[Rfam]
RNA: Archaeal large subunit ribosomal RNA, nucleotides 10 to 601
RNA sequence: GAAAUAAACCACACAGGGGAGGGUUCGGCUUGACUGCUGAUGAAGGACAUGGCAAGCUGUGAUAUGUCCUGGCAAGGCGCAUGCAGCCUUUGAACCAGGAAUUUCCGAAUUUAUCCUGAUUUAUAAUCAGGAUAGGGAACGCGGGGAAUUGAAACAUCUUAUUACCCGCAGGAAAAGAAAGCAAAAGCGAUUCGGUUAGUAAAGGCGAUCGAAACCCGAUUAAAGAGCAAACUGAAUCCUUAAUGGAAACAUUGAGGAGAUGUGGUGCGGCCCUAAUUUUAUCGUAAUUAAAUCAGACGAAGUUUUUCUGGAAUGGAACACAAAACAGGGUGACAGUCCCGUAGUCAAAAUUUAAACGAUAUUUUGGAGUCCGAGAGUAGCAGGCAUUGGAUAUUGCUUGUGAAUACGGGAGGCAUCCACUCCCAACUCUAAAUACAUGUCAAGACCGAUAGCAGACUAGUACCGUGAGGGAAAACUGAAAAGGAUCCCCGUAAAGGAUGUGAAAAGAGCCUGAAACUGUGUGGUGAUAGUUAGACGCAGCGUUUAAACAAUUACAUGAAGUUUACGAAUGUAAUUUUGUAUGUUGCGUCGU
Numbered sequence: 001g002a003a004a005u006a007a008a009c010c011a012c013a014c015a016g017g018g019g020a021g022g023g024u025u026c027g028g029c030u031u032g033a034c035u036g037c038u039g040a041u042g043a044a045g046g047a048c049a050u051g052g053c054a055a056g057c058u059g060u061g062a063u064a065u066g067u068c069c070u071g072g073c074a075a076g077g078c079g080c081a082u083g084c085a086g087c088c089u090u091u092g093a094a095c096c097a098g099g100a101a102u103u104u105c106c107g108a109a110u111u112u113a114u115c116c117u118g119a120u121u122u123a124u125a126a127u128c129a130g131g132a133u134a135g136g137g138a139a140c141g142c143g144g145g146g147a148a149u150u151g152a153a154a155c156a157u158c159u160u161a162u163u164a165c166c167c168g169c170a171g172g173a174a175a176a177g178a179a180a181g182c183a184a185a186a187g188c189g190a191u192u193c194g195g196u197u198a199g200u201a202a203a204g205g206c207g208a209u210c211g212a213a214a215c216c217c218g219a220u221u222a223a224a225g226a227g228c229a230a231a232c233u234g235a236a237u238c239c240u241u242a243a244u245g246g247a248a249a250c251a252u253u254g255a256g257g258a259g260a261u262g263u264g265g266u267g268c269g270g271c272c273c274u275a276a277u278u279u280u281a282u283c284g285u286a287a288u289u290a291a292a293u294c295a296g297a298c299g300a301a302g303u304u305u306u307u308c309u310g311g312a313a314u315g316g317a318a319c320a321c322a323a324a325a326c327a328g329g330g331u332g333a334c335a336g337u338c339c340c341g342u343a344g345u346c347a348a349a350a351u352u353u354a355a356a357c358g359a360u361a362u363u364u365u366g367g368a369g370u371c372c373g374a375g376a377g378u379a380g381c382a383g384g385c386a387u388u389g390g391a392u393a394u395u396g397c398u399u400g401u402g403a404a405u406a407c408g409g410g411a412g413g414c415a416u417c418c419a420c421u422c423c424c425a426a427c428u429c430u431a432a433a434u435a436c437a438u439g440u441c442a443a444g445a446c447c448g449a450u451a452g453c454a455g456a457c458u459a460g461u462a463c464c465g466u467g468a469g470g471g472a473a474a475a476c477u478g479a480a481a482a483g484g485a486u487c488c489c490c491g492u493a494a495a496g497g498a499u500g501u502g503a504a505a506a507g508a509g510c511c512u513g514a515a516a517c518u519g520u521g522u523g524g525u526g527a528u529a530g531u532u533a534g535a536c537g538c539a540g541c542g543u544u545u546a547a548a549c550a551a552u553u554a555c556a557u558g559a560a561g562u563u564u565a566c567g568a569a570u571g572u573a574a575u576u577u578u579g580u581a582u583g584u585u586g587c588g589u590c591g592u
Base pairs, nucleotide, nucleotide: 008525009524010523011522012521013520014519015518016517022511023476024475027447028446029444030443031442032441033440034439035437036436045106046105047104048061049060050059067100068099069098070097071096072095076088077087078086126133127132140171141169142168143167144166145165151158152157181188182187192219193218194217195216203209224430225429226428227427232265233264234263242253243252244251245250272367273366280361281360282359283358296346297345298344302319305318306317307316308315328340329339330338380401381400382399383398384397385396386395408424409423410422411421412420463470464469534590535589536588537587538586539585540584541583542582543581551575552574553573554572555571556570557569561566